[Rfam]
RNA: Lysine riboswitch aptamer
Organism: Virgibacillus pantothenticus
RNA sequence: CGGUGAGGUAGAGGUGCAGUAUAUAAGAGUAGUCUGUUGGAGGAUGACAACAAUGAAAGCAGAUGAAAGGAUGUAUUGCCGAAGCAUAAUAAGUGUCAAGCUUAUUAUCGCUGGUAUGCUUUUGAAUAGGAGGUAUACUGUCAUGCAGCAAGCAACAUGCAUGGAGAACUACUGAUCGA
Numbered sequence: 001c002g003g004u005g006a007g008g009u010a011g012a013g014g015u016g017c018a019g020u021a022u023a024u025a026a027g028a029g030u031a032g033u034c035u036g037u038u039g040g041a042g043g044a045u046g047a048c049a050a051c052a053a054u055g056a057a058a059g060c061a062g063a064u065g066a067a068a069g070g071a072u073g074u075a076u077u078g079c080c081g082a083a084g085c086a087u088a089a090u091a092a093g094u095g096u097c098a099a100g101c102u103u104a105u106u107a108u109c110g111c112u113g114g115u116a117u118g119c120u121u122u123u124g125a126a127u128a129g130g131a132g133g134u135a136u137a138c139u140g141u142c143a144u145g146c147a148g149c150a151a152g153c154a155a156c157a158u159g160c161a162u163g164g165a166g167a168a169c170u171a172c173u174g175a176u177c178g179a
Base pairs, nucleotide, nucleotide: 007173008172009171010170011169016079017078018077019076020075021074022073023072024071032064033063034062035061036060037059038058083112084111085110087107088106089105090104091103092102093101094100113139114138115137116136117135118134119133120132121131122130123129141164142163143162144161145160146159147158